RNA sequence: CCGUGCUAGGCGGGGAGGUAGCGGUGCCCUGUAACUCGCAAUCCGCUGUAGCGAGGCUGAAUUCCCAUCACGAGGUGAGUGACCGUGUGGUCUGCCUCAAGGGAUUGGUGUUGACGUUUAGGUCCUGCGCAACAGGAACCCACGAACCCUGUCAGGUCCGGAAGGAAGCAGCAGUAAGUGGUCAUUCUUGUGUGCCGUGGGGUUACCUAAACUGAGCCAUGAACUUGAGUAACGCAUGGGGUCGCUUCAUCGACGUUGGGUGCACGG
Numbered sequence: 001c002c003g004u005g006c007u008a009g010g011c012g013g014g015g016a017g018g019u020a021g022c023g024g025u026g027c028c029c030u031g032u033a034a035c036u037c038g039c040a041a042u043c044c045g046c047u048g049u050a051g052c053g054a055g056g057c058u059g060a061a062u063u064c065c066c067a068u069c070a071c072g073a074g075g076u077g078a079g080u081g082a083c084c085g086u087g088u089g090g091u092c093u094g095c096c097u098c099a100a101g102g103g104a105u106u107g108g109u110g111u112u113g114a115c116g117u118u119u120a121g122g123u124c125c126u127g128c129g130c131a132a133c134a135g136g137a138a139c140c141c142a143c144g145a146a147c148c149c150u151g152u153c154a155g156g157u158c159c160g161g162a163a164g165g166a167a168g169c170a171g172c173a174g175u176a177a178g179u180g181g182u183c184a185u186u187c188u189u190g191u192g193u194g195c196c197g198u199g200g201g202g203u204u205a206c207c208u209a210a211a212c213u214g215a216g217c218c219a220u221g222a223a224c225u226u227g228a229g230u231a232a233c234g235c236a237u238g239g240g241g242u243c244g245c246u247u248c249a250u251c252g253a254c255g256u257u258g259g260g261u262g263c264a265c266g267g
Stems, first nucleotide, its partner, number of pairs: 001267006009058003012030004017025001019023001035055005064260004069255001074251005080244005086238004093231002097228005105221001107218003116212008124201006130192002133190005140181004149174004157166003
This 267-nucleotide RNA sequence from Ornithinibacillus hominis belongs to the Rfam family "Bacterial large signal recognition particle RNA". The match comes from Rfam's covariance-model search (218 bits). From the family's description: The signal recognition particle (SRP) is a universally conserved ribonucleoprotein involved in the co-translational targeting of proteins to membranes. The source organism's lineage runs through Bacteria, Bacillati, Caryophanales, Bacillaceae and Ornithinibacillus. The base pairs follow the family's consensus structure, which is taken from published work.